This 82-nucleotide sequence from Ophiophagus hannah belongs to the Rfam family "mir-130 microRNA precursor family". Taxonomically the source falls in Ophiophagus (Eukaryota, Craniata, Gnathostomata, Euteleostomi). On this family, see Lagos-Quintana et al., Curr Biol 2002: "Identification of tissue-specific microRNAs from mouse". Its family is annotated with miRNA-mediated post-transcriptional gene silencing and RISC complex in the Gene Ontology.

RNA sequence: UACCAGCCAAUGCCCUUUUAACAUUGCACUGCUUUUUGUGCAUGUUCACUAGUAGUACAACAUAAAAAGGGCAGUGGACGGA
Number, nucleotide and partner (000 for none) at each position: 001u082002a000003c080004c000005a000006g000007c077008c076009a075010a000011u000012g072013c071014c070015c069016u068017u067018u066019u065020a000021a000022c000023a000024u060025u059026g058027c000028a056029c055030u054031g000032c000033u000034u000035u000036u000037u000038g000039u000040g000041c000042a000043u000044g000045u000046u000047c000048a000049c000050u000051a000052g000053u000054a030055g029056u028057a000058c026059a025060a024061c000062a000063u000064a000065a019066a018067a017068a016069g015070g014071g013072c012073a000074g000075u009076g008077g007078a000079c000080g003081g000082a001